Shown here is a 107-nucleotide sequence from Flavobacterium arcticum, a member of the family "6S-Flavo RNA".
Nucleotides: 107
Base pairs, nucleotide, nucleotide: 023086024085025084026083027082034077035076036075037074038073043068044067045066050062051061052060053059
Number, partner (000 for none) and nucleotide at each position: 001000a002000c003000u004000c005000a006000a007000c008000a009000c010000u011000a012000a013000c014000a015000a016000a017000u018000u019000a020000a021000a022000a023086u024085g025084a026083g027082u028000g029000a030000a031000u032000c033000u034077c035076c036075g037074u038073u039000u040000c041000u042000a043068a044067a045066g046000c047000a048000a049000g050062c051061u052060g053059c054000c055000u056000u057000g058000a059053g060052c061051a062050g063000a064000u065000c066045c067044u068043u069000g070000a071000a072000c073038a074037a075036c076035g077034g078000g079000u080000u081000a082027g083026c084025u085024c086023a087000a088000a089000a090000c091000u092000u093000g094000u095000c096000c097000a098000u099000u100000a101000c102000g103000a104000g105000u106000u107000u